RNA sequence: GCUCUUGUAGCUCAGUUGGUAGAGCACACCCUUGGUAAGGGUGAGGUCGGCAGUUCAAAUCUGCUCAAGAGCU
Number, nucleotide and partner (000 for none) at each position: 001g072002c071003u070004c069005u068006u067007g066008u000009a000010g025011c024012u023013c022014a000015g000016u000017u000018g000019g000020u000021a000022g013023a012024g011025c010026a000027c043028a042029c041030c040031c039032u000033u000034g000035g000036u000037a000038a000039g031040g030041g029042u028043g027044a000045g000046g000047u000048c000049g065050g064051c063052a062053g061054u000055u000056c000057a000058a000059a000060u000061c053062u052063g051064c050065u049066c007067a006068a005069g004070a003071g002072c001073u000
A member of the RNA family "tRNA" from Sinobacterium caligoides, 73 nucleotides long. The match comes from Rfam's covariance-model search (70 bits). The family's consensus secondary structure is taken from published work. Rfam links the family to the GO term triplet codon-amino acid adaptor activity.